[Rfam]
Nucleotides: 074
Base pairs, nucleotide, nucleotide: 010025011024012023013022016065017064018063020061021060047055048054
Number, partner (000 for none) and nucleotide at each position: 001000g002000u003000g004000g005000u006000g007000c008000c009000g010025g011024g012023c013022g014000a015000u016065g017064g018063a019000u020061c021060c022013c023012g024011c025010c026000c027000g028000g029000a030000c031000c032000u033000c034000c035000g036000c037000g038000g039000u040000c041000c042000g043000a044000a045000c046000c047055g048054c049000a050000a051000c052000c053000u054048g055047c056000u057000g058000a059000u060021g061020g062000u063018u064017c065016c066000u067000a068000c069000c070000a071000c072000g073000u074000c
A member of the RNA family "Fluoride riboswitch aptamer (crcB RNA motif)" from Flexivirga oryzae, 74 nucleotides long. A search with the family's covariance model found it, with a score of 38 bits.